The family of this 72-nucleotide RNA from Mediterraneibacter gnavus is "tRNA". About the family: Transfer RNA (tRNA) molecules are approximately 80 nucleotides in length. It is annotated as a transfer RNA.
[Rfam]
RNA sequence: GUUCCCUUAGUAAAAUGGAUAUUACGGAUCCCUCCUAAGGAUCAAGUGCAGGUUCGAUUCCUGCAGGGAACG
Numbered sequence: 001g002u003u004c005c006c007u008u009a010g011u012a013a014a015a016u017g018g019a020u021a022u023u024a025c026g027g028a029u030c031c032c033u034c035c036u037a038a039g040g041a042u043c044a045a046g047u048g049c050a051g052g053u054u055c056g057a058u059u060c061c062u063g064c065a066g067g068g069a070a071c072g
Base pairs, nucleotide, nucleotide: 001071002070003069004068005067006066007065010025011024012023013022027043028042029041030040031039048064049063050062051061052060